[Rfam]
Nucleotides: 213
Base pairs, nucleotide, nucleotide: 001031002030003029004028005027006026007025008024009023010022011021012020013019042065043064044063045062046061047060049058050057051056087198088197089196090195091194092192093191095109096108097107098106099105111190112189113188114187115186117183118182119181121178122177124174125173128170129168130167131166132165133164134163135162136161137160141159142158143157144156145155
Number, partner (000 for none) and nucleotide at each position: 001031c002030u003029g004028c005027a006026c007025u008024g009023g010022c011021c012020g013019g014000c015000u016000c017000c018000g019013c020012c021011g022010g023009c024008c025007a026006g027005u028004g029003c030002a031001g032000u033000u034000g035000u036000a037000a038000a039000g040000c041000a042065g043064a044063c045062c046061g047060c048000u049058c050057u051056c052000u053000a054000c055000a056051g057050g058049g059000u060047g061046c062045g063044g064043u065042c066000a067000u068000c069000g070000a071000u072000g073000a074000a075000a076000u077000a078000a079000c080000g081000a082000c083000c084000a085000g086000c087198a088197g089196g090195g091194g092192c093191g094000a095109u096108c097107g098106g099105g100000c101000u102000g103000g104000a105099c106098c107097c108096g109095g110000a111190c112189u113188a114187u115186c116000u117183g118182c119181g120000g121178g122177a123000u124174c125173c126000g127000u128170a129168g130167u131166g132165g133164c134163u135162u136161u137160a138000c139000c140000g141159a142158a143157g144156u145155c146000g147000c148000u149000g150000c151000u152000u153000u154000g155145g156144a157143c158142u159141u160137u161136a162135g163134a164133g165132c166131c167130a168129u169000g170128u171000u172000c173125g174124g175000u176000c177122u178121c179000c180000u181119c182118g183117c184000c185000a186115g187114g188113u189112g190111g191093u192092g193000u194091c195090c196089c197088c198087u199000u200000a201000c202000c203000g204000a205000g206000g207000g208000u209000g210000a211000c212000c213000u
Source information
This 213-nucleotide sequence from Geopseudomonas guangdongensis belongs to the Rfam family "sucA-II RNA". The organism belongs to Geopseudomonas, within Bacteria. It scores 120 bits against the family's covariance model.